[Rfam]
RNA: Glycine riboswitch aptamer
RNA sequence: UCAAAGUCAGCGGGAGAGCGUUCGGCCCAUCGGGGACCGUGCGCGCCGAAGGAGCAACCGCCUCGGAAACUCUCAGGCACAAGGGACCGCCCGACCAGC
Numbered sequence: 001u002c003a004a005a006g007u008c009a010g011c012g013g014g015a016g017a018g019c020g021u022u023c024g025g026c027c028c029a030u031c032g033g034g035g036a037c038c039g040u041g042c043g044c045g046c047c048g049a050a051g052g053a054g055c056a057a058c059c060g061c062c063u064c065g066g067a068a069a070c071u072c073u074c075a076g077g078c079a080c081a082a083g084g085g086a087c088c089g090c091c092c093g094a095c096c097a098g099c
Stems, first nucleotide, its partner, number of pairs: 007093001010090004019043003045078003048074002052072003058065001